The record is a 114-nucleotide sequence from Sinocyclocheilus rhinocerous, which matches "Potassium channel RNA editing signal" in Rfam. Taxonomically the source falls in Sinocyclocheilus (Eukaryota, Bilateria, Chordata, Osteoglossocephalai). By type it is a cis-regulatory element. The match comes from Rfam's covariance-model search (97 bits).
[Rfam]
RNA sequence: CUGGGUUACGGAGACAUGUACCCUCAGACGUGGUCUGGCAUGGUUGUCGGUGCGCUUUGCGCCCUCGCCGGCGUGCUGACGAUAGCCAUGCCGGUUCCCGUCAUCGUCAAUAAC
Numbered sequence: 001c002u003g004g005g006u007u008a009c010g011g012a013g014a015c016a017u018g019u020a021c022c023c024u025c026a027g028a029c030g031u032g033g034u035c036u037g038g039c040a041u042g043g044u045u046g047u048c049g050g051u052g053c054g055c056u057u058u059g060c061g062c063c064c065u066c067g068c069c070g071g072c073g074u075g076c077u078g079a080c081g082a083u084a085g086c087c088a089u090g091c092c093g094g095u096u097c098c099c100g101u102c103a104u105c106g107u108c109a110a111u112a113a114c
Stems, first nucleotide, its partner, number of pairs: 002113001004111001008107004013102003018097001020095002037077004049063003